[Rfam]
Background:
Bacterial RNase P class A: a 371-nucleotide RNA from Anaerolinea thermophila. Lineage of the source: Bacteria > Bacillati > Chloroflexota > Anaerolineae > Anaerolinea thermophila. The family's RNA type in Rfam is ribozyme.
RNA sequence: CAGGUCGGUCGGGCGAUCGCGGCUGUCGGUUCACGGCAGUCGAGGAAAGUCCGCACUCCACAGGGCACGGCGCCGGGUAACGCCCGGGGGGCCGUAAGGUUCCGGACAGGGCCACAGAAACAUACCGCCCGAAAAGGGUAAGGGUGAAAAGGUGGUGUAAGAGACCACCGGCGCGGCAGUAAUGUCGCGGCCAGGCAACCCCCGCCGGGAGCAAGGCCAAGCAGAGGCCGUCUCUCUUCGGAGAGUAAGGACUGCCCGUCCAAGGGUCUCGGGUGGGCUGCAUGAGCGGAUGGGUAACCGUCCGCCUAGAGAGAUGAUCGCCGCCCCCUUUGAUGGGGGUACAGAAUGCGGCUUACAGACCGGCCUGAGUU
Numbered sequence: 001c002a003g004g005u006c007g008g009u010c011g012g013g014c015g016a017u018c019g020c021g022g023c024u025g026u027c028g029g030u031u032c033a034c035g036g037c038a039g040u041c042g043a044g045g046a047a048a049g050u051c052c053g054c055a056c057u058c059c060a061c062a063g064g065g066c067a068c069g070g071c072g073c074c075g076g077g078u079a080a081c082g083c084c085c086g087g088g089g090g091g092c093c094g095u096a097a098g099g100u101u102c103c104g105g106a107c108a109g110g111g112c113c114a115c116a117g118a119a120a121c122a123u124a125c126c127g128c129c130c131g132a133a134a135a136g137g138g139u140a141a142g143g144g145u146g147a148a149a150a151g152g153u154g155g156u157g158u159a160a161g162a163g164a165c166c167a168c169c170g171g172c173g174c175g176g177c178a179g180u181a182a183u184g185u186c187g188c189g190g191c192c193a194g195g196c197a198a199c200c201c202c203c204g205c206c207g208g209g210a211g212c213a214a215g216g217c218c219a220a221g222c223a224g225a226g227g228c229c230g231u232c233u234c235u236c237u238u239c240g241g242a243g244a245g246u247a248a249g250g251a252c253u254g255c256c257c258g259u260c261c262a263a264g265g266g267u268c269u270c271g272g273g274u275g276g277g278c279u280g281c282a283u284g285a286g287c288g289g290a291u292g293g294g295u296a297a298c299c300g301u302c303c304g305c306c307u308a309g310a311g312a313g314a315u316g317a318u319c320g321c322c323g324c325c326c327c328c329u330u331u332g333a334u335g336g337g338g339g340u341a342c343a344g345a346a347u348g349c350g351g352c353u354u355a356c357a358g359a360c361c362g363g364c365c366u367g368a369g370u371u
Stems, first nucleotide, its partner, number of pairs: 001367010011356001012322007020042009047354003051351005056211004063257004068207005073087005088103001090101004104202002109200002111196003125143002127139004151169006171191001172189007215279004224270006249261004286305008